[Rfam]
RNA sequence: AUCCGUCCACAACGGCUUCCUGACGUGGUUCGGCACAACAAAUGGAGCA
Numbered sequence: 001a002u003c004c005g006u007c008c009a010c011a012a013c014g015g016c017u018u019c020c021u022g023a024c025g026u027g028g029u030u031c032g033g034c035a036c037a038a039c040a041a042a043u044g045g046a047g048c049a
Base pairs, nucleotide, nucleotide: 004032005031007028008027009026010025013022014021015048016047017046019045020044